[Rfam]
mir-15 microRNA precursor family: an 89-nucleotide RNA from Mus musculus. Gene Ontology terms of the family: miRNA-mediated post-transcriptional gene silencing and RISC complex. This family represents the related mir-15a and mir-15b sequences.
RNA sequence: GUCAGCGGUGCCUUAGCAGCACGUAAAUAUUGGCGUUAAGAUUCUGAAAUUACCUCCAGUAUUGACUGUGCUGCUGAAGUAAGGUUGGC
Numbered sequence: 001g002u003c004a005g006c007g008g009u010g011c012c013u014u015a016g017c018a019g020c021a022c023g024u025a026a027a028u029a030u031u032g033g034c035g036u037u038a039a040g041a042u043u044c045u046g047a048a049a050u051u052a053c054c055u056c057c058a059g060u061a062u063u064g065a066c067u068g069u070g071c072u073g074c075u076g077a078a079g080u081a082a083g084g085u086u087g088g089c
Stems, first nucleotide, its partner, number of pairs: 001089006013077011024065001026063008035054001